[Rfam]
RNA sequence: UCCCUGAUAGCUCAGUCGGUAGAGCGACGGACUGUUAAUCCGCAGGUCGCAGGUUCGAGCCCUGCUCGGGGAG
Numbered sequence: 001u002c003c004c005u006g007a008u009a010g011c012u013c014a015g016u017c018g019g020u021a022g023a024g025c026g027a028c029g030g031a032c033u034g035u036u037a038a039u040c041c042g043c044a045g046g047u048c049g050c051a052g053g054u055u056c057g058a059g060c061c062c063u064g065c066u067c068g069g070g071g072a073g
Stems, first nucleotide, its partner, number of pairs: 001072007010025004028042004049065005
Dot-bracket structure: (((((((..((((........))))..((((.......))))......(((((.......)))))))))))).
This 73-nucleotide RNA sequence from Alcaligenaceae bacterium 429 belongs to the Rfam family "tRNA". Gene Ontology term of the family: triplet codon-amino acid adaptor activity. The family's RNA type in Rfam is transfer RNA. A search with the family's covariance model found it, with a score of 68 bits.